[Rfam]
RNA: Hepatitis C virus stem-loop SL8001 RNA
RNA sequence: CAUGCUAGCAAGGCCGUUAACCACAUCCGCUCCGUGUGGGAGGACUUGCUAGAAGACU
Numbered sequence: 001c002a003u004g005c006u007a008g009c010a011a012g013g014c015c016g017u018u019a020a021c022c023a024c025a026u027c028c029g030c031u032c033c034g035u036g037u038g039g040g041a042g043g044a045c046u047u048g049c050u051a052g053a054a055g056a057c058u
Stems, first nucleotide, its partner, number of pairs: 005052008014043002021039006